[Rfam]
RNA sequence: AUAUCGGAAGCUGUAAGGAAGUGCUUCGCGCGCGGGCUUAAAACAAAU
Numbered sequence: 001a002u003a004u005c006g007g008a009a010g011c012u013g014u015a016a017g018g019a020a021g022u023g024c025u026u027c028g029c030g031c032g033c034g035g036g037c038u039u040a041a042a043a044c045a046a047a048u
Base pairs, nucleotide, nucleotide: 008039009038010037011036012035021033022032023031024030
RNA: ssnA RNA